[Rfam]
RNA sequence: UCUGCCUCACGAAUAAUCAUACUGUGAAUCCACACAGUUUGGUUCAGACAGGGGCGCACAGCGAUUCGAUUCGAUGCGAUUCAAGGGUGUGACCAGAUCGAUGUGUUCAUCCUUUGUUGCUUUUGCAACUCCGCUUGCUUCGGACAUUU
Numbered sequence: 001u002c003u004g005c006c007u008c009a010c011g012a013a014u015a016a017u018c019a020u021a022c023u024g025u026g027a028a029u030c031c032a033c034a035c036a037g038u039u040u041g042g043u044u045c046a047g048a049c050a051g052g053g054g055c056g057c058a059c060a061g062c063g064a065u066u067c068g069a070u071u072c073g074a075u076g077c078g079a080u081u082c083a084a085g086g087g088u089g090u091g092a093c094c095a096g097a098u099c100g101a102u103g104u105g106u107u108c109a110u111c112c113u114u115u116g117u118u119g120c121u122u123u124u125g126c127a128a129c130u131c132c133g134c135u136u137g138c139u140u141c142g143g144a145c146a147u148u149u
Stems, first nucleotide, its partner, number of pairs: 003056006015044005021038002024035003072142003076138002079118001081116001083113001085111001087110001091108002094105002125134002
Dot-bracket structure: ..((((((......(((((.((.(((......))).)).)))))......))))))...............(((.((.(.(.(.(.(...((.((........)).)).)).)..).)......((......))..)).))).......

Notes: The family of this 149-nucleotide RNA from Rosa chinensis is "Small nucleolar RNA snoR138". The family has 7 seed sequences and 308 matches in Rfam 15.1. Rfam links the family to the GO terms nucleolus and RNA processing. Taxonomically the source falls in Rosa (Eukaryota, rosids, Rosales, Rosoideae). By type it is an H/ACA-box small nucleolar RNA. The match comes from Rfam's covariance-model search (54 bits).